The record is a 114-nucleotide sequence from marine actinobacterium PHSC20C1, which matches "ALIL pseudoknot" in Rfam. A reference for the family is Mazauric et al. (2008), "Apical loop-internal loop RNA pseudoknots: a new type of stimulator of -1 translational frameshifting in bacteria", J Biol Chem. The base pairs follow the family's consensus structure, which is taken from published work. The source organism's lineage runs through Bacteria, Bacillati, Actinomycetota and Actinomycetes.
RNA sequence: GGCUUUCUUCGUGGCGGAGCCAGGCCGCUCACACAACAGAUGAUCGAUUACGUCGAUGCGAACAAGGACGAAUUCGGGGUCGAGCCGAUCUGCAGCCAACUGCCGAUCGCCCCG
Numbered sequence: 001g002g003c004u005u006u007c008u009u010c011g012u013g014g015c016g017g018a019g020c021c022a023g024g025c026c027g028c029u030c031a032c033a034c035a036a037c038a039g040a041u042g043a044u045c046g047a048u049u050a051c052g053u054c055g056a057u058g059c060g061a062a063c064a065a066g067g068a069c070g071a072a073u074u075c076g077g078g079g080u081c082g083a084g085c086c087g088a089u090c091u092g093c094a095g096c097c098a099a100c101u102g103c104c105g106a107u108c109g110c111c112c113c114g
Stems, first nucleotide, its partner, number of pairs: 013029005075114005086109002089106002092103004